Shown here is an 85-nucleotide RNA from Lactococcus lactis, a member of the family "ctRNA". By type it is an antisense RNA. About the family: Rolling circle replication plasmids contain a number of mechanisms to maintain a low copy number. One of these methods is to transcribe a small RNA called ctRNA (for counter-transcribed RNA) than is transcribed on the opposite strand to RepB the replication initiation protein. ctRNA binds to the mRNA of repB and causes translational inhibition. Pairs were carried over by alignment from the consensus structure, which was predicted with ILM. A reference for the family is Duan et al. (1998), "Involvement of antisense RNA in replication control of the lactococcal plasmid pND324", FEMS Microbiol Lett.

RNA sequence: UAGAAAUACUCCUUUGUGAGUGUUUUGUGAUUAAGCAUAGAGAAGUGAUUUAGACGUCAAUUUUCUCUAUGCUUUCAUUAUACAA
Numbered sequence: 001u002a003g004a005a006a007u008a009c010u011c012c013u014u015u016g017u018g019a020g021u022g023u024u025u026u027g028u029g030a031u032u033a034a035g036c037a038u039a040g041a042g043a044a045g046u047g048a049u050u051u052a053g054a055c056g057u058c059a060a061u062u063u064u065c066u067c068u069a070u071g072c073u074u075u076c077a078u079u080a081u082a083c084a085a
Stems, first nucleotide, its partner, number of pairs: 005026002007022005033074013